RNA sequence: UUACUUACCUGGUAGGGGAGAUACCAUGAUCACGAAGGUGGUUUUCCCAGGGUGAGGCUCAUCCAUUGCACUGCGGGUGUGCUGACCCUGCGGGUGUGCUGACCCCUGCGAUUUCCCCAAAUGCGGGAAACUCGACUGCAUAAUUUGUGGUAGUGGGGGACUGCGUUCGCGCUCAACAA
Numbered sequence: 001u002u003a004c005u006u007a008c009c010u011g012g013u014a015g016g017g018g019a020g021a022u023a024c025c026a027u028g029a030u031c032a033c034g035a036a037g038g039u040g041g042u043u044u045u046c047c048c049a050g051g052g053u054g055a056g057g058c059u060c061a062u063c064c065a066u067u068g069c070a071c072u073g074c075g076g077g078u079g080u081g082c083u084g085a086c087c088c089u090g091c092g093g094g095u096g097u098g099c100u101g102a103c104c105c106c107u108g109c110g111a112u113u114u115c116c117c118c119a120a121a122u123g124c125g126g127g128a129a130a131c132u133c134g135a136c137u138g139c140a141u142a143a144u145u146u147g148u149g150g151u152a153g154u155g156g157g158g159g160a161c162u163g164c165g166u167u168c169g170c171g172c173u174c175a176a177c178a179a
Base pairs, nucleotide, nucleotide: 012139013138014137015136016048017047018046019045020044021043023042024041025040026039027038049107050106051105052104054103056100057099058098060096061095062094063093064092109134110133111132112130113129114128116126117125158177163172164171165170
U1 spliceosomal RNA: a 179-nucleotide RNA from Mauremys mutica. It is annotated as a spliceosomal small nuclear RNA. Rfam links the family to the GO terms pre-mRNA 5'-splice site binding, U1 snRNP and mRNA 5'-splice site recognition. The match comes from Rfam's covariance-model search (134 bits).